This 75-nucleotide RNA from Crocodylus porosus belongs to the Rfam family "Mammalian CPEB3 ribozyme".
The literature on the family includes a 2004 paper in Nature by Teixeira et al., "Autocatalytic RNA cleavage in the human beta-globin pre-mRNA promotes transcription termination".
The source organism's lineage runs through Eukaryota, Opisthokonta, Chordata, Tetrapoda and Crocodylus.
RNA sequence: AACUGCUAUAACGGCCGUAGCAGAAGUGCUCGUGUCACAACCCCAUCAGAUUCUAACAAAUCUGCAAAUUCUGUU
Numbered sequence: 001a002a003c004u005g006c007u008a009u010a011a012c013g014g015c016c017g018u019a020g021c022a023g024a025a026g027u028g029c030u031c032g033u034g035u036c037a038c039a040a041c042c043c044c045a046u047c048a049g050a051u052u053c054u055a056a057c058a059a060a061u062c063u064g065c066a067a068a069u070u071c072u073g074u075u
Base pairs, nucleotide, nucleotide: 013042014041019075020074021073022072023071024070025069026038027037028036047064048063049062050061051060052059